[Rfam]
RNA sequence: UCGUCCAUGCUUUGGCGCUUUAGCUGUAUGAUAGAAUUUAAUAUUUCAUAAAGCUAGAUUACCAAAGCAUGGAAG
Numbered sequence: 001u002c003g004u005c006c007a008u009g010c011u012u013u014g015g016c017g018c019u020u021u022a023g024c025u026g027u028a029u030g031a032u033a034g035a036a037u038u039u040a041a042u043a044u045u046u047c048a049u050a051a052a053g054c055u056a057g058a059u060u061a062c063c064a065a066a067g068c069a070u071g072g073a074a075g
Stems, first nucleotide, its partner, number of pairs: 002075001004073001006071010017060001019058007027050005
RNA: mir-9/mir-79 microRNA precursor family
Organism: Culex quinquefasciatus